Description: Shown here is a 159-nucleotide RNA from Paenibacillus swuensis, a member of the family "c-di-AMP riboswitch aptamer (ydaO/yuaA leader)". The base pairs follow the family's consensus structure. It scores 95 bits against the family's covariance model.
RNA sequence: AACUAAUCAUCGCUGAAUUCCCUAAGGGGAAGCGGGGGAACCCACUUCGGCCCACGCCGAUGGGGUGAAUCGCGGACGGCCGUUUAAGGUCAAGACGCGUAGGGCGACUCUCACGCCCGAAUCCGGCAGCUAACCUCGCAAGCGUAUUCGAGAGAGGCC
Numbered sequence: 001a002a003c004u005a006a007u008c009a010u011c012g013c014u015g016a017a018u019u020c021c022c023u024a025a026g027g028g029g030a031a032g033c034g035g036g037g038g039a040a041c042c043c044a045c046u047u048c049g050g051c052c053c054a055c056g057c058c059g060a061u062g063g064g065g066u067g068a069a070u071c072g073c074g075g076a077c078g079g080c081c082g083u084u085u086a087a088g089g090u091c092a093a094g095a096c097g098c099g100u101a102g103g104g105c106g107a108c109u110c111u112c113a114c115g116c117c118c119g120a121a122u123c124c125g126g127c128a129g130c131u132a133a134c135c136u137c138g139c140a141a142g143c144g145u146a147u148u149c150g151a152g153a154g155a156g157g158c159c
Stems, first nucleotide, its partner, number of pairs: 011144004018031003032139006042062001063124003071099004102118004